Shown here is a 389-nucleotide RNA sequence from Pseudomaricurvus hydrocarbonicus, a member of the family "Bacterial RNase P class A". Lineage of the source: Bacteria > Pseudomonadati > Pseudomonadota > Cellvibrionaceae > Pseudomaricurvus. It is annotated as a ribozyme. Gene Ontology terms of the family: tRNA processing, ribonuclease P activity and dimeric ribonuclease P complex. About the family: Ribonuclease P (RNase P) is a ubiquitous endoribonuclease, found in archaea, bacteria and eukarya as well as chloroplasts and mitochondria.
[Rfam]
RNA sequence: GAAGUUGGUCAGACAGUCGCUGCCUGUUGAGUUCGAGCCUGGCUUGAGUUCAACGGGGAGAGGAAAGUCCGGGCUCCAUAGGGUAGAACGCCAGGUAACGCCUGGGGGGCGCAAGCCUACGGAAAGUGCAGCAGAGAGUAGACCGCCGAUGGCCGCCGCUUAUGCAAAUAAGAGGUGGCACAGGUAAGGGUGAAAGGGUGCGGUAAGAGCGCACCGCGCAACUGGCAACAGCUUGUGGCAUGGUAAACCCCGUUCGGAGCAAGACCAAAUAGGCCUUCUAUGGUGCGACCCGCACUGAAGGCGGGUAGGUUGCUUGAGGCUUGUGGUGACGCAAGCCCUAGAUGAAUGACUGUCGAUGACAGAACCCGGCUUAUAGACCGACUUCAAUA
Numbered sequence: 001g002a003a004g005u006u007g008g009u010c011a012g013a014c015a016g017u018c019g020c021u022g023c024c025u026g027u028u029g030a031g032u033u034c035g036a037g038c039c040u041g042g043c044u045u046g047a048g049u050u051c052a053a054c055g056g057g058g059a060g061a062g063g064a065a066a067g068u069c070c071g072g073g074c075u076c077c078a079u080a081g082g083g084u085a086g087a088a089c090g091c092c093a094g095g096u097a098a099c100g101c102c103u104g105g106g107g108g109g110c111g112c113a114a115g116c117c118u119a120c121g122g123a124a125a126g127u128g129c130a131g132c133a134g135a136g137a138g139u140a141g142a143c144c145g146c147c148g149a150u151g152g153c154c155g156c157c158g159c160u161u162a163u164g165c166a167a168a169u170a171a172g173a174g175g176u177g178g179c180a181c182a183g184g185u186a187a188g189g190g191u192g193a194a195a196g197g198g199u200g201c202g203g204u205a206a207g208a209g210c211g212c213a214c215c216g217c218g219c220a221a222c223u224g225g226c227a228a229c230a231g232c233u234u235g236u237g238g239c240a241u242g243g244u245a246a247a248c249c250c251c252g253u254u255c256g257g258a259g260c261a262a263g264a265c266c267a268a269a270u271a272g273g274c275c276u277u278c279u280a281u282g283g284u285g286c287g288a289c290c291c292g293c294a295c296u297g298a299a300g301g302c303g304g305g306u307a308g309g310u311u312g313c314u315u316g317a318g319g320c321u322u323g324u325g326g327u328g329a330c331g332c333a334a335g336c337c338c339u340a341g342a343u344g345a346a347u348g349a350c351u352g353u354c355g356a357u358g359a360c361a362g363a364a365c366c367c368g369g370c371u372u373a374u375a376g377a378c379c380g381a382c383u384u385c386a387a388u389a
Stems, first nucleotide, its partner, number of pairs: 001385010011374001012354007020060002023057014065372003069369005074259004081291004086255005091105005106120001107118004121250002126248002128244002143189002145185003150180002153177001197215006216239001217237005222231003263311004273302006282296005318337008